[Rfam]
Nucleotides: 101
Base pairs, nucleotide, nucleotide: 018087020085021084022083023082024081025080029049030048031047032046033045034044057077058076059075060074061073062072
Number, partner (000 for none) and nucleotide at each position: 001000c002000u003000a004000a005000a006000a007000u008000u009000u010000u011000a012000u013000a014000g015000a016000u017000u018087u019000c020085c021084u022083c023082a024081u025080a026000u027000a028000a029049u030048g031047u032046c033045g034044a035000u036000a037000a038000u039000a040000u041000g042000g043000u044034u045033c046032g047031a048030c049029a050000g051000u052000u053000u054000c055000u056000a057077g058076g059075g060074a061073u062072a063000a064000c065000c066000g067000u068000a069000a070000a071000a072062u073061a074060u075059c076058c077057u078000a079000c080025u081024a082023u083022g084021g085020g086000u087018g088000a089000a090000a091000g092000u093000g094000u095000a096000u097000c098000u099000a100000g101000g